[Rfam]
RNA sequence: GCUAUAAUAAAAAGACAUCCAAAUAUAAUCUUCAAAAUAAGGUUGAAGAGUUUCUACCAAUUACCGUAAAUAAUUGACUAUUGGGUUUGUGAUUAGGCAU
Numbered sequence: 001g002c003u004a005u006a007a008u009a010a011a012a013a014g015a016c017a018u019c020c021a022a023a024u025a026u027a028a029u030c031u032u033c034a035a036a037a038u039a040a041g042g043u044u045g046a047a048g049a050g051u052u053u054c055u056a057c058c059a060a061u062u063a064c065c066g067u068a069a070a071u072a073a074u075u076g077a078c079u080a081u082u083g084g085g086u087u088u089g090u091g092a093u094u095a096g097g098c099a100u
Stems, first nucleotide, its partner, number of pairs: 019085002022082004029049007058076006

The record is a 100-nucleotide sequence from Dolosicoccus paucivorans, which matches "Purine riboswitch aptamer" in Rfam. Pairs were carried over by alignment from the consensus structure, which is taken from published work. The family is grouped with related families in Rfam's "Purine riboswitches".